[Rfam]
RNA sequence: GAAGCGCGCCAGGCCGUCGCUGGCACUGCCUCGCAAGAGGACCCGAAAGGGGGUGCUGGAGGAACGUCCGGACUGCACAGGACAGCGUAGGAGGUAACACCUCUCCACCGACAAGCCGCAAGGCCCUAAGGUGAGGAUCAGAGCAACAGAGACGAGCCGCUUCAGUGCGGGUGAAACGGGCAAUCUCUACGCGCAGCAAUACCAAAUAGGCCAGCCUGACGAGACACGGUUCGCCGUGUUGAGGAUCCUUGUGGUUCCGCGAGGAGAGUUGGCGGGUAGGUAGCACCGAGCCGGGUGGGCAACCCCCGGCCCAGAUGAAUGGCGGUCACAUCCGGGGCAACCUGGAUGCACAGAAUCCGGCGUAACGGCGCGCUUCACAC
Numbered sequence: 001g002a003a004g005c006g007c008g009c010c011a012g013g014c015c016g017u018c019g020c021u022g023g024c025a026c027u028g029c030c031u032c033g034c035a036a037g038a039g040g041a042c043c044c045g046a047a048a049g050g051g052g053g054u055g056c057u058g059g060a061g062g063a064a065c066g067u068c069c070g071g072a073c074u075g076c077a078c079a080g081g082a083c084a085g086c087g088u089a090g091g092a093g094g095u096a097a098c099a100c101c102u103c104u105c106c107a108c109c110g111a112c113a114a115g116c117c118g119c120a121a122g123g124c125c126c127u128a129a130g131g132u133g134a135g136g137a138u139c140a141g142a143g144c145a146a147c148a149g150a151g152a153c154g155a156g157c158c159g160c161u162u163c164a165g166u167g168c169g170g171g172u173g174a175a176a177c178g179g180g181c182a183a184u185c186u187c188u189a190c191g192c193g194c195a196g197c198a199a200u201a202c203c204a205a206a207u208a209g210g211c212c213a214g215c216c217u218g219a220c221g222a223g224a225c226a227c228g229g230u231u232c233g234c235c236g237u238g239u240u241g242a243g244g245a246u247c248c249u250u251g252u253g254g255u256u257c258c259g260c261g262a263g264g265a266g267a268g269u270u271g272g273c274g275g276g277u278a279g280g281u282a283g284c285a286c287c288g289a290g291c292c293g294g295g296u297g298g299g300c301a302a303c304c305c306c307c308g309g310c311c312c313a314g315a316u317g318a319a320u321g322g323c324g325g326u327c328a329c330a331u332c333c334g335g336g337g338c339a340a341c342c343u344g345g346a347u348g349c350a351c352a353g354a355a356u357c358c359g360g361c362g363u364a365a366c367g368g369c370g371c372g373c374u375u376c377a378c379a380c
Base pairs, nucleotide, nucleotide: 001376002375003374004373005372006371007370008369009368010367012327013326014325015324016323017322018321020059021058022057023056024055025054026053027052064363065362066361068360069359070358071357072356073196074195075194076193080257081256082255083254085192086191087190088189089188090104091103092102093101094100105135106133107132108131109130136187137186141185142184143181144180157170158169159166160165200282201281202280203279210273211272212271213270214269215268248263249262250261251260252259290310291309292308293307294306295305297304298303
The family of this 380-nucleotide sequence from Hydrogenophaga sp. RAC07 is "Bacterial RNase P class A".
Lineage of the source: Bacteria > Pseudomonadota > Betaproteobacteria > Burkholderiales > Hydrogenophaga.
It is annotated as a ribozyme.
A search with the family's covariance model found it, with a score of 168 bits.